[Rfam]
The record is a 102-nucleotide RNA from Bacillus sp. SG-1, which matches "Purine riboswitch aptamer" in Rfam.
RNA sequence: AAAACAACAAGUAAACACCCUCAUAUAAUCUUGGGAAUAUGGCCCAUAAGUAUCUACCCGGUUACCGUAAAUGAUCGGACUAUGAGGGAAAGUAGCUGUCUG
Number, nucleotide and partner (000 for none) at each position: 001a000002a000003a000004a000005c000006a000007a000008c000009a000010a000011g000012u000013a000014a000015a000016c000017a000018c088019c087020c086021u085022c084023a083024u082025a081026u000027a000028a000029u049030c000031u000032u046033g045034g044035g043036a000037a000038u000039a000040u000041g000042g000043c035044c034045c033046a032047u000048a000049a029050g000051u000052a000053u000054c000055u000056a000057c000058c078059c077060g076061g075062u074063u073064a072065c000066c000067g000068u000069a000070a000071a000072u064073g063074a062075u061076c060077g059078g058079a000080c000081u025082a024083u023084g022085a021086g020087g019088g018089a000090a000091a000092g000093u000094a000095g000096c000097u000098g000099u000100c000101u000102g000
It is one of the family's seed sequences.